Shown here is a 96-nucleotide RNA sequence from Mytilus edulis, a member of the family "Small nucleolar RNA U83B". The family has 21 seed sequences and 966 matches in Rfam 15.1. The match comes from Rfam's covariance-model search (36 bits). Rfam links the family to the GO terms RNA processing and nucleolus. U83B belongs to the C/D family of snoRNAs.

[Rfam]
RNA sequence: AUCAAUCAAUGAUGAAACACAUGGAAAGUAUCCCUGCCAGGAUACUCUGAAUUUGAUGAAGAUUUCACCCAUGUUGCCUUCCUUCUGAUGAUUGAU
Numbered sequence: 001a002u003c004a005a006u007c008a009a010u011g012a013u014g015a016a017a018c019a020c021a022u023g024g025a026a027a028g029u030a031u032c033c034c035u036g037c038c039a040g041g042a043u044a045c046u047c048u049g050a051a052u053u054u055g056a057u058g059a060a061g062a063u064u065u066c067a068c069c070c071a072u073g074u075u076g077c078c079u080u081c082c083u084u085c086u087g088a089u090g091a092u093u094g095a096u
Base pairs, nucleotide, nucleotide: 001096002095003094004093005092